[Rfam]
RNA sequence: GAUGGAACUGCACGGCCGCAAAUCUGACUCGUUGGGUGUUACCAACUUGGGAUUGCGGAAGUGC
Numbered sequence: 001g002a003u004g005g006a007a008c009u010g011c012a013c014g015g016c017c018g019c020a021a022a023u024c025u026g027a028c029u030c031g032u033u034g035g036g037u038g039u040u041a042c043c044a045a046c047u048u049g050g051g052a053u054u055g056c057g058g059a060a061g062u063g064c
Base pairs, nucleotide, nucleotide: 010064011063012062013061016058017057018056019055020054021053024051025050031046032045033044034043035042
Overview:
Rfam assigns this 64-nucleotide RNA to the family "S15-Halobacteria ribosomal protein leader". The family's RNA type in Rfam is cis-regulatory leader. It is one of the family's seed sequences.